[Rfam]
RNA sequence: ACUACAAUUCGGCCGUUCAUUGGGUCAUCUAGCUCGUGUUGGAAACAGUUAGCUGCCUAGUGAAGGGCAAUAUUGU
Numbered sequence: 001a002c003u004a005c006a007a008u009u010c011g012g013c014c015g016u017u018c019a020u021u022g023g024g025u026c027a028u029c030u031a032g033c034u035c036g037u038g039u040u041g042g043a044a045a046c047a048g049u050u051a052g053c054u055g056c057c058u059a060g061u062g063a064a065g066g067g068c069a070a071u072a073u074u075g076u
Base pairs, nucleotide, nucleotide: 004076005075006074007073008072012068013067014066017063018062019061020060023057024056029052030051031050032049033048

The family of this 76-nucleotide sequence from Aedes aegypti is "mir-980 microRNA precursor family".
Lineage of the source: Eukaryota > Opisthokonta > Panarthropoda > Diptera > Stegomyia.
The base pairs follow the family's consensus structure, which was predicted with RNAalifold.
Rfam links the family to the GO terms miRNA-mediated post-transcriptional gene silencing and RISC complex.